[Rfam]
RNA sequence: AUAGAAAAAGCCAAACCCAUCGUGAGGUGGGGACGGAAAGCCACGGGUCUUAAUGAGAUAGCCGGGUUGCCUUAA
Numbered sequence: 001a002u003a004g005a006a007a008a009a010g011c012c013a014a015a016c017c018c019a020u021c022g023u024g025a026g027g028u029g030g031g032g033a034c035g036g037a038a039a040g041c042c043a044c045g046g047g048u049c050u051u052a053a054u055g056a057g058a059u060a061g062c063c064g065g066g067u068u069g070c071c072u073u074a075a
Stems, first nucleotide, its partner, number of pairs: 003072002011036002016031006034061001039068004044064003047059003

The record is a 75-nucleotide RNA sequence from Desulfonema ishimotonii, which matches "c-di-GMP-I-GGC riboswitch aptamer" in Rfam. The base pairs follow the family's consensus structure, which is taken from published work. A reference for the family is Weinberg et al. (2017), "Bioinformatic analysis of riboswitch structures uncovers variant classes with altered ligand specificity", Proc Natl Acad Sci U S A.